[Rfam]
RNA: Acido-Lenti-1 RNA
RNA sequence: CCCAGGCCGUUGGCCUGGGCUGUGAUAUUUCGCCCCUUCGGGGCU
Numbered sequence: 001c002c003c004a005g006g007c008c009g010u011u012g013g014c015c016u017g018g019g020c021u022g023u024g025a026u027a028u029u030u031c032g033c034c035c036c037u038u039c040g041g042g043g044c045u
Stems, first nucleotide, its partner, number of pairs: 001019008032044005